RNA: Manganese Mn2+ riboswitch aptamer (yybP-ykoY)
RNA sequence: GACUACUUCAUUGGGGAGUAGCCGCUGUUUACAUUAGGUAAACGGGUGAUGGUCAACAUAAUUGUUUUAUCAAACAUGGCCAUCAUAGCAAAGACCAAGAGUCCUUUGUUGGCAAGACCUUUGAUUUAUCUCUCUGCAUUAGAACACUUUGGCUAGCAGGGGAGGUAAGUCGUUGGUUUUAUGCUAGCUAAAGGGCAUCAUC
Numbered sequence: 001g002a003c004u005a006c007u008u009c010a011u012u013g014g015g016g017a018g019u020a021g022c023c024g025c026u027g028u029u030u031a032c033a034u035u036a037g038g039u040a041a042a043c044g045g046g047u048g049a050u051g052g053u054c055a056a057c058a059u060a061a062u063u064g065u066u067u068u069a070u071c072a073a074a075c076a077u078g079g080c081c082a083u084c085a086u087a088g089c090a091a092a093g094a095c096c097a098a099g100a101g102u103c104c105u106u107u108g109u110u111g112g113c114a115a116g117a118c119c120u121u122u123g124a125u126u127u128a129u130c131u132c133u134c135u136g137c138a139u140u141a142g143a144a145c146a147c148u149u150u151g152g153c154u155a156g157c158a159g160g161g162g163a164g165g166u167a168a169g170u171c172g173u174u175g176g177u178u179u180u181a182u183g184c185u186a187g188c189u190a191a192a193g194g195g196c197a198u199c200a201u202c
Stems, first nucleotide, its partner, number of pairs: 026044003046086010063076005091201001093199001